RNA sequence: GGCAGAGGGAGCCCGGUUUCCGCGGUGCACGCGGCGCUCGUCGCGUGCGGACGGUAUCGAUUUCCGGUACCUACGUGAGGAAAGUCCCCCCACCAGCCGGGUAGGCAACCGGACGCAAGUCCGGAGUGGGAGACCACUGGCUCUGGAACAGAAACGAGACCGCUUCGCGCGACCGAUGAGGUGUGCGAACCGACCCGUAAGGGGAGGAAGUUAACCCACCGAGGGAAGCGUGAUGGCGAUGCCAUCACGCGACCGCGCUGGCGCUGUCAGUGCGGUGACCGCGAAGAAUGGAUGGAACGGUGAAUCCUUGCCGGUGCAAGUCCGUGCCAUAUUGGUAGCCCGGACGCGCCGUCGGAUACACUCCGACGCGCCUCCGGACCUCGUCCGGAGAUGGUUCGGACGCUGAGCCGAAUACUGGGUCGAACAGAAGGGGGCUUACUCCCCUCAGCC
Number, nucleotide and partner (000 for none) at each position: 001g450002g449003c448004a000005g446006a445007g444008g443009g442010a440011g439012c419013c418014c417015g416016g415017u414018u000019u000020c000021c077022g076023c075024g074025g000026u000027g000028c000029a000030c000031g000032c000033g000034g000035c000036g000037c000038u000039c000040g000041u000042c000043g000044c000045g000046u000047g000048c000049g000050g000051a000052c000053g000054g000055u000056a000057u000058c000059g000060a000061u000062u000063u000064c000065c000066g000067g000068u000069a000070c000071c000072u000073a000074c024075g023076u022077g021078a000079g000080g000081a000082a437083a436084g435085u000086c434087c433088c432089c431090c430091c316092a315093c314094c313095a000096g000097c000098c000099g000100g000101g000102u000103a000104g312105g311106c310107a309108a308109c124110c123111g122112g121113a120114c000115g000116c000117a000118a000119g000120u113121c112122c111123g110124g109125a138126g137127u136128g135129g134130g000131a000132g000133a000134c129135c128136a127137c126138u125139g307140g306141c000142u000143c000144u303145g000146g301147a000148a000149c000150a000151g000152a000153a000154a000155c000156g000157a000158g000159a000160c291161c290162g289163c286164u285165u284166c283167g282168c281169g280170c000171g000172a000173c000174c000175g000176a000177u000178g000179a000180g000181g000182u000183g000184u000185g000186c000187g000188a000189a000190c000191c000192g000193a000194c000195c000196c000197g000198u000199a000200a000201g000202g000203g000204g000205a000206g000207g000208a000209a000210g000211u000212u000213a000214a000215c000216c000217c000218a000219c000220c000221g000222a000223g000224g000225g000226a000227a000228g000229c000230g000231u000232g000233a000234u000235g000236g000237c000238g000239a000240u000241g000242c000243c000244a000245u000246c000247a000248c000249g000250c000251g000252a000253c000254c000255g000256c000257g000258c000259u000260g000261g000262c000263g000264c000265u000266g000267u000268c000269a000270g000271u000272g000273c000274g000275g000276u000277g000278a000279c000280c169281g168282c167283g166284a165285a164286g163287a000288a000289u162290g161291g160292a000293u000294g000295g000296a000297a000298c000299g000300g000301u146302g000303a144304a000305u000306c140307c139308u108309u107310g106311c105312c104313g094314g093315u092316g091317c000318a000319a000320g401321u400322c399323c398324g000325u000326g000327c000328c000329a392330u391331a000332u389333u388334g000335g000336u000337a000338g000339c000340c000341c000342g000343g000344a000345c000346g000347c000348g000349c000350c000351g000352u000353c000354g000355g000356a000357u000358a000359c000360a000361c000362u000363c000364c000365g000366a000367c000368g000369c000370g000371c000372c000373u000374c000375c000376g000377g000378a000379c000380c000381u000382c000383g000384u000385c000386c000387g000388g333389a332390g000391a330392u329393g000394g000395u000396u000397c000398g323399g322400a321401c320402g000403c000404u000405g000406a000407g000408c000409c000410g000411a000412a000413u000414a017415c016416u015417g014418g013419g012420u000421c000422g000423a000424a000425c000426a000427g000428a000429a000430g090431g089432g088433g087434g086435c084436u083437u082438a000439c011440u010441c000442c009443c008444c007445u006446c005447a000448g003449c002450c001
RNA: Archaeal RNase P